Fungal signal recognition particle RNA: a 303-nucleotide RNA from Niveomyces insectorum.
Rfam classes the family as a non-coding RNA gene.
Rfam links the family to the GO terms signal recognition particle, plasma membrane targeting, signal recognition particle, endoplasmic reticulum targeting and SRP-dependent cotranslational protein targeting to membrane, signal sequence recognition.
[Rfam]
RNA sequence: UGGCUGUAAUGGUCAAAGUGGUAGGCGGCUCUUGCAAUUCUUAUUUCCCGCUGCUUCAUGUCCGGGUUGGGCUCUUCGCCCAGCUCGACCCAGUGCGUCGCCCAGUGCGAAUGCUGCGGUGGCCGCCCACUCGCACGGGAAACCUGCGAUGCUGGAACCUUGCUUGCGGCCCUAAGCAAUCGGAGAUGAUACUUCAGGGAGGCUUCACUCUGCAGAGGCAUCUUCACCGUCGCGUGGCGGACUGGAUUACGAUCGCAUUGGGUUGGGACAGCAUUUGAGAUGAAGAAGCCAACUACUAUUUUU
Numbered sequence: 001u002g003g004c005u006g007u008a009a010u011g012g013u014c015a016a017a018g019u020g021g022u023a024g025g026c027g028g029c030u031c032u033u034g035c036a037a038u039u040c041u042u043a044u045u046u047c048c049c050g051c052u053g054c055u056u057c058a059u060g061u062c063c064g065g066g067u068u069g070g071g072c073u074c075u076u077c078g079c080c081c082a083g084c085u086c087g088a089c090c091c092a093g094u095g096c097g098u099c100g101c102c103c104a105g106u107g108c109g110a111a112u113g114c115u116g117c118g119g120u121g122g123c124c125g126c127c128c129a130c131u132c133g134c135a136c137g138g139g140a141a142a143c144c145u146g147c148g149a150u151g152c153u154g155g156a157a158c159c160u161u162g163c164u165u166g167c168g169g170c171c172c173u174a175a176g177c178a179a180u181c182g183g184a185g186a187u188g189a190u191a192c193u194u195c196a197g198g199g200a201g202g203c204u205u206c207a208c209u210c211u212g213c214a215g216a217g218g219c220a221u222c223u224u225c226a227c228c229g230u231c232g233c234g235u236g237g238c239g240g241a242c243u244g245g246a247u248u249a250c251g252a253u254c255g256c257a258u259u260g261g262g263u264u265g266g267g268a269c270a271g272c273a274u275u276u277g278a279g280a281u282g283a284a285g286a287a288g289c290c291a292a293c294u295a296c297u298a299u300u301u302u303u
Base pairs, nucleotide, nucleotide: 001015002014003013004012016301017300018299019298020297021296022295023294027290028289029288030287032285033284035282036281038279039278040277050272051271052270069081070080071079072078091260092259093258094257095256096255097254098252099251100250102245103244104243105242106241108239109238111235112234113233114232116230117229118228119227123155124154125153127151129150131149132148133147134146135145137144138143172176182225183224184223185222186221187220192217193216194215199210200209201208